[Rfam]
RNA sequence: CGGAGGGAGCGAGGUAAAAAAGAGUGAGCCGGCGGCGUCGCAGCGUACGCAGCCGGCUUCC
Numbered sequence: 001c002g003g004a005g006g007g008a009g010c011g012a013g014g015u016a017a018a019a020a021a022g023a024g025u026g027a028g029c030c031g032g033c034g035g036c037g038u039c040g041c042a043g044c045g046u047a048c049g050c051a052g053c054c055g056g057c058u059u060c061c
Stems, first nucleotide, its partner, number of pairs: 028057006035050002039045001
RNA: DnaX ribosomal frameshifting element
Organism: Edwardsiella hoshinae